[Rfam]
Shown here is a 133-nucleotide sequence from Escherichia coli, a member of the family "RtT RNA". About the family: This family represents a bacterial cis-regulatory element known as RtT RNA. The exact function of RtT is unknown although it is thought that it may be involved in changing the cellular response in relation to amino acid starvation. Rfam's curators put it in the seed alignment. Rfam classes the family as a cis-regulatory element. The family's consensus secondary structure is taken from published work. A reference for the family is Bosl and Kersten (1991), "A novel RNA product of the tyrT operon of Escherichia coli", Nucleic Acids Res.
RNA sequence: AGUUUGCACUCAUCGGGGAAGGGUGAGAACCUUCGACUAAGGUUCGACUCGAGCGAAAGCGAGAGAACGUUUUCACAGGCAACGGCCCGAAGGGUGAGGAGCGAAGCGACGAAUAAUCCUUUCCCCACCGCCA
Numbered sequence: 001a002g003u004u005u006g007c008a009c010u011c012a013u014c015g016g017g018g019a020a021g022g023g024u025g026a027g028a029a030c031c032u033u034c035g036a037c038u039a040a041g042g043u044u045c046g047a048c049u050c051g052a053g054c055g056a057a058a059g060c061g062a063g064a065g066a067a068c069g070u071u072u073u074c075a076c077a078g079g080c081a082a083c084g085g086c087c088c089g090a091a092g093g094g095u096g097a098g099g100a101g102c103g104a105a106g107c108g109a110c111g112a113a114u115a116a117u118c119c120u121u122u123c124c125c126c127a128c129c130g131c132c133a
Base pairs, nucleotide, nucleotide: 016124017123018122019121020120021119022118024116034096035095037094038093043091044090045089046088050061051060068084069083070082071081073079